[Rfam]
RNA sequence: ACUGGUUAGGGCCAGUCUAAAUAGGAUUUAAGCCCUAAGCGUCAGCCGUAGUUGACCCGAACCUCUACGGCUGGGUAUUA
Numbered sequence: 001a002c003u004g005g006u007u008a009g010g011g012c013c014a015g016u017c018u019a020a021a022u023a024g025g026a027u028u029u030a031a032g033c034c035c036u037a038a039g040c041g042u043c044a045g046c047c048g049u050a051g052u053u054g055a056c057c058c059g060a061a062c063c064u065c066u067a068c069g070g071c072u073g074g075g076u077a078u079u080a
Base pairs, nucleotide, nucleotide: 001016002015003014004013006038007037008036009035010034011033025079026078027077032040042074043073044072045071046070047069048068049067050066051065
The record is an 80-nucleotide sequence from Curtobacterium phage Ayka, which matches "Pistol ribozyme" in Rfam. Its family is annotated with catalytic activity in the Gene Ontology. It scores 62 bits against the family's covariance model. Lineage of the source: Viruses > Duplodnaviria > Heunggongvirae > Uroviricota > Caudoviricetes.